Overview
The record is a 405-nucleotide RNA sequence from Treponema ruminis, which matches "Bacterial RNase P class A" in Rfam. The match comes from Rfam's covariance-model search (251 bits). The source organism's lineage runs through Bacteria, Spirochaetota, Spirochaetia, Treponematales and Treponema. Rfam classes the family as a ribozyme.
[Rfam]
RNA sequence: CAGAAAAGAUAUAACCGUGCCUGACCCGCUUAUGACAGCGGGCUUGGGUGAGGAAAGUCCGGGCUCCACCGGAAAAAACGCCGGGUAAUUACCGGGCAGAAAGAGGAACUUGCAUGGCUCGCCCUGCAUAAGCCUUUUUUCUGACAGACAGUGCCACAGAGAAUAUACCGCCUUCGGGUAAGGGUGAAAAGGUGAGGUAAGAGCUCACCGCAGUUCUGGCAACAGGGCUGGCAUGGUAAACCUCGUUUGGAGCAAGGCCAAGUAGCAGUCAGGUUUUCCGGACUAUUGGCUGCGGGUAGGCUGCUAAAGGCUUUUGGCAACAAAAGUUUCGGAUAGAUGGUUAUGCGGGCUUUUCUUUUUUUGAAAAGUUCAGGACAGAACCCGGCUUAUUGUCUUUUCUGUUUU
Number, nucleotide and partner (000 for none) at each position: 001c401002a400003g399004a398005a397006a396007a395008g394009a393010u392011a390012u343013a342014a341015c340016c339017g000018u050019g049020c048021c047022u046023g045024a044025c000026c042027c000028g000029c000030u000031u000032a000033u000034g000035a000036c000037a000038g000039c000040g000041g000042g026043c000044u024045u023046g022047g021048g020049u019050g018051a000052g000053g000054a000055a388056a387057g386058u000059c385060c384061g383062g382063g381064c252065u251066c250067c249068a000069c000070c000071g000072g279073a000074a277075a000076a248077a247078a246079c245080g244081c095082c094083g093084g092085g000086u000087a000088a000089u000090u000091a000092c084093c083094g082095g081096g145097c143098a142099g141100a140101a139102a138103g137104a136105g135106g134107a000108a000109c000110u000111u000112g000113c000114a000115u000116g000117g000118c000119u000120c000121g000122c000123c000124c000125u000126g000127c000128a000129u000130a000131a000132g000133c000134c106135u105136u104137u103138u102139u101140u100141c099142u098143g097144a000145c096146a243147g242148a000149c000150a000151g241152u240153g237154c236155c235156a000157c000158a000159g000160a000161g000162a000163a000164u000165a000166u000167a000168c183169c182170g179171c178172c177173u000174u000175c000176g000177g172178g171179u170180a000181a000182g169183g168184g000185u000186g000187a000188a000189a000190a000191g209192g208193u207194g206195a205196g204197g000198u000199a000200a000201g000202a000203g000204c196205u195206c194207a193208c192209c191210g232211c230212a229213g228214u227215u226216c225217u224218g223219g000220c000221a000222a000223c218224a217225g216226g215227g214228c213229u212230g211231g000232c210233a000234u000235g155236g154237u153238a000239a000240a152241c151242c147243u146244c080245g079246u078247u077248u076249g067250g066251a065252g064253c000254a000255a000256g302257g301258c300259c299260a000261a000262g000263u000264a000265g293266c292267a291268g290269u289270c288271a000272g284273g283274u282275u281276u000277u074278c000279c072280g000281g275282a274283c273284u272285a000286u000287u000288g270289g269290c268291u267292g266293c265294g000295g000296g000297u000298a000299g259300g258301c257302u256303g000304c000305u000306a000307a000308a000309g328310g327311c326312u325313u324314u323315u322316g321317g000318c000319a000320a000321c316322a315323a314324a313325a312326g311327u310328u309329u000330c000331g000332g000333a000334u000335a000336g000337a000338u000339g016340g015341u014342u013343a012344u000345g000346c000347g000348g000349g000350c000351u000352u000353u000354u000355c000356u000357u000358u000359u000360u000361u000362u000363g000364a000365a000366a000367a000368g000369u000370u000371c000372a000373g000374g000375a000376c000377a000378g000379a000380a000381c063382c062383c061384g060385g059386c057387u056388u055389a000390u011391u000392g010393u009394c008395u007396u006397u005398u004399c003400u002401g001402u000403u000404u000405u000